A member of the RNA family "serC leader" from Rhizobium sp. RU36D, 53 nucleotides long. The base pairs follow the family's consensus structure. Rfam's curators write: This family is a putative regulatory RNA structure that is found upstream of the serC-serA operon in some alpha-proteobacteria. The final stem of the structure overlaps the ribosome binding site of the serC reading frame. The literature on the family includes a 2005 paper in Genome Biol by Corbino et al., "Evidence for a second class of S-adenosylmethionine riboswitches and other regulatory RNA motifs in alpha-proteobacteria".
[Rfam]
RNA sequence: CGGCGGGACACUCCUCCCCAACGAGGAGCCAUCUAUCUGGAAGGAUAGCCAUA
Numbered sequence: 001c002g003g004c005g006g007g008a009c010a011c012u013c014c015u016c017c018c019c020a021a022c023g024a025g026g027a028g029c030c031a032u033c034u035a036u037c038u039g040g041a042a043g044g045a046u047a048g049c050c051a052u053a
Stems, first nucleotide, its partner, number of pairs: 011028006033048006